[Rfam]
RNA sequence: ACCGUCCUUAUCUUGGGGUUGCGCGGCUGCUCAAUGAACGCGUAGUGAGGGCAGCACUGCUAACGCCUUGAACAACACGCUGGCGCCCGCCUCGCGCGUGGCGCAAUUUUUGGAACC
Numbered sequence: 001a002c003c004g005u006c007c008u009u010a011u012c013u014u015g016g017g018g019u020u021g022c023g024c025g026g027c028u029g030c031u032c033a034a035u036g037a038a039c040g041c042g043u044a045g046u047g048a049g050g051g052c053a054g055c056a057c058u059g060c061u062a063a064c065g066c067c068u069u070g071a072a073c074a075a076c077a078c079g080c081u082g083g084c085g086c087c088c089g090c091c092u093c094g095c096g097c098g099u100g101g102c103g104c105a106a107u108u109u110u111u112g113g114a115a116c117c
Base pairs, nucleotide, nucleotide: 006018007017008016009015021060022059023058026055027054028053029052030051031050032049038046039045083104084103085102086101087100088098089097090096
The record is a 117-nucleotide RNA from Turnix velox, which matches "U4atac minor spliceosomal RNA" in Rfam. Lineage of the source: Eukaryota > Gnathostomata > Teleostomi > Dipnotetrapodomorpha > Turnix. Rfam 15.1 lists 1,648 matches to the family in 818 species. The family's RNA type in Rfam is spliceosomal small nuclear RNA. From the family's description: U4atac is an essential component of the minor U12-type spliceosome complex which is required for removal of the rarer class of eukaryotic introns (AT-AC, U12-type). It scores 93 bits against the family's covariance model. A reference for the family is Lorkovic et al. (2005), "Evolutionary conservation of minor U12-type spliceosome between plants and humans", RNA.